[Rfam]
RNA sequence: CUUGACCGAGCCGAGCCACACCGGCUCGCCGCCCUGGCCGUAGGUCGCCUGCAGGGCCAACGCCUC
Numbered sequence: 001c002u003u004g005a006c007c008g009a010g011c012c013g014a015g016c017c018a019c020a021c022c023g024g025c026u027c028g029c030c031g032c033c034c035u036g037g038c039c040g041u042a043g044g045u046c047g048c049c050u051g052c053a054g055g056g057c058c059a060a061c062g063c064c065u066c
Stems, first nucleotide, its partner, number of pairs: 014026004027062001029056002034051001036049001038047001040045001
This 66-nucleotide RNA from Actinocrispum wychmicini belongs to the Rfam family "ASpks TB sRNA". The source organism's lineage runs through Bacteria, Actinomycetes, Pseudonocardiales, Pseudonocardiaceae and Actinocrispum. Rfam classes the family as an antisense RNA.